[Rfam]
RNA sequence: ACCGCAGCAGCCGAAAAGCGGAACAAAGAGUAGGCA
Number, nucleotide and partner (000 for none) at each position: 001a000002c021003c020004g019005c018006a000007g000008c000009a000010g035011c034012c033013g000014a000015a000016a000017a000018g005019c004020g003021g002022a000023a000024c000025a000026a000027a000028g000029a000030g000031u000032a000033g012034g011035c010036a000